[Rfam]
RNA sequence: AAGCACCACUCUGUGGCAUAUAAAAAAAACCAUCUGACACAACUUGAGCUUGUUCUAGCAAAAAUGUCUAACCUAUUCCAGUGUUCUCUUCCCUACAAAACAAGCUACCAUAUAGGCUCAAACAAU
Numbered sequence: 001a002a003g004c005a006c007c008a009c010u011c012u013g014u015g016g017c018a019u020a021u022a023a024a025a026a027a028a029a030c031c032a033u034c035u036g037a038c039a040c041a042a043c044u045u046g047a048g049c050u051u052g053u054u055c056u057a058g059c060a061a062a063a064a065u066g067u068c069u070a071a072c073c074u075a076u077u078c079c080a081g082u083g084u085u086c087u088c089u090u091c092c093c094u095a096c097a098a099a100a101c102a103a104g105c106u107a108c109c110a111u112a113u114a115g116g117c118u119c120a121a122a123c124a125a126u
Stems, first nucleotide, its partner, number of pairs: 009048003012041004017036002020033002066117005074112003080106003087100001089098002
RNA: Small nucleolar RNA SNORA28